[Rfam]
RNA sequence: AUCACCUGGGAAUCUUGUUUAAAUGCAGAUUCUGAUUCAGUAGGGCUGGGGUGAGGCCUGAGAUCCUGCAUUUCUAACAAGCUCCCAGGUGAUGCCAA
Numbered sequence: 001a002u003c004a005c006c007u008g009g010g011a012a013u014c015u016u017g018u019u020u021a022a023a024u025g026c027a028g029a030u031u032c033u034g035a036u037u038c039a040g041u042a043g044g045g046c047u048g049g050g051g052u053g054a055g056g057c058c059u060g061a062g063a064u065c066c067u068g069c070a071u072u073u074c075u076a077a078c079a080a081g082c083u084c085c086c087a088g089g090u091g092a093u094g095c096c097a098a
Stems, first nucleotide, its partner, number of pairs: 003091003009085003014081006021073003025069004031063003
Dot-bracket structure: ..(((...(((..((((((.(((.((((..(((...........................)))..)))).)))..)))))).)))...))).......